[Rfam]
RNA sequence: UUGCUCCUGAGUUUGUGCUCAUUGUGUUGGCAGAAUCUGGACCCACUCAUCAGGUCCGGAGUUAGACCCCGAACUUCUCCCUCCCCAUCCGAAGCUCGGGGUUUUUUUUGCCUGCAG
Dot-bracket structure: ...................................((((((((.........))))))))...(((((((((.((((.............)))).)))))).)))............
The record is a 117-nucleotide sequence from Pseudomonas sp. HAR-UPW-AIA-41, which matches "Pseudomon-1/ErsA RNA" in Rfam.
The family's RNA type in Rfam is small RNA.
The base pairs follow the family's consensus structure, which is taken from published work.
A search with the family's covariance model found it, with a score of 92 bits.